Background
The record is a 128-nucleotide sequence from Roseobacter sp. SK209-2-6, which matches "Ruegeria cis8 sRNA" in Rfam. Pairs were carried over by alignment from the consensus structure, which was predicted with RNAfold. NCBI's taxonomy places the organism under Bacteria, Pseudomonadati, Alphaproteobacteria, Rhodobacterales, Roseobacter. It scores 80 bits against the family's covariance model.
RNA sequence: ACCUCCAGCACCUUGGCUAUGUAGGGGAUCAGCGGCAGGUUCAGCACCAGGAGGAUCAGAUUCCCGAUAUACAUUGAGAUGAUCACCGCCCAGAAGAUCUGCGGCUCAUCGAUCAUGAGCCGCGGCCC
Numbered sequence: 001a002c003c004u005c006c007a008g009c010a011c012c013u014u015g016g017c018u019a020u021g022u023a024g025g026g027g028a029u030c031a032g033c034g035g036c037a038g039g040u041u042c043a044g045c046a047c048c049a050g051g052a053g054g055a056u057c058a059g060a061u062u063c064c065c066g067a068u069a070u071a072c073a074u075u076g077a078g079a080u081g082a083u084c085a086c087c088g089c090c091c092a093g094a095a096g097a098u099c100u101g102c103g104g105c106u107c108a109u110c111g112a113u114c115a116u117g118a119g120c121c122g123c124g125g126c127c128c
Stems, first nucleotide, its partner, number of pairs: 005016004026128002029125002033122004038114003043109001046106001048104001050102001052100003056097002061093002073083003
The literature on the family includes a 2016 paper in Front Microbiol by Rivers et al., "Experimental Identification of Small Non-Coding RNAs in the Model Marine Bacterium Ruegeria pomeroyi DSS-3". Rfam 15.1 lists 138 matches to the family in 133 species.